RNA sequence: GAGAACUAAUACUCUGAGCAAUUAAAUGAGAAGGUAACGCUUUGAAGAAUUGCCAUUAAUACUACGGUAUGCAGUUGAUUAGGUUAUUAUGAAGCUGUGUAAAGCCCGUUGAAGUCGGCAGAAAAGUUACCCUAACAAGUUAAGUUGAGGAAAGGUUUAAUUAACCGUAACUGAUAUGUCGGAUGUCUAAGAA
Numbered sequence: 001g002a003g004a005a006c007u008a009a010u011a012c013u014c015u016g017a018g019c020a021a022u023u024a025a026a027u028g029a030g031a032a033g034g035u036a037a038c039g040c041u042u043u044g045a046a047g048a049a050u051u052g053c054c055a056u057u058a059a060u061a062c063u064a065c066g067g068u069a070u071g072c073a074g075u076u077g078a079u080u081a082g083g084u085u086a087u088u089a090u091g092a093a094g095c096u097g098u099g100u101a102a103a104g105c106c107c108g109u110u111g112a113a114g115u116c117g118g119c120a121g122a123a124a125a126g127u128u129a130c131c132c133u134a135a136c137a138a139g140u141u142a143a144g145u146u147g148a149g150g151a152a153a154g155g156u157u158u159a160a161u162u163a164a165c166c167g168u169a170a171c172u173g174a175u176a177u178g179u180c181g182g183a184u185g186u187c188u189a190a191g192a193a
Stems, first nucleotide, its partner, number of pairs: 018053006031043004054185004064109004068101009080089002116181005125172006131150003138146002154166004
The record is a 193-nucleotide RNA sequence from Tissierella creatinophila, which matches "Group II catalytic intron D1-D4-5" in Rfam.
Its family is annotated with Group II intron splicing in the Gene Ontology.
Rfam describes the family as follows. Group II introns are found in rRNA, tRNA and mRNA of organelles in fungi, plants and protists, and also in mRNA in bacteria.
Taxonomically the source falls in Tissierella creatinophila (Bacteria, Bacillati, Tissierellaceae, Tissierella).
On this family, see Bonen and Vogel, Trends Genet 2001: "The ins and outs of group II introns".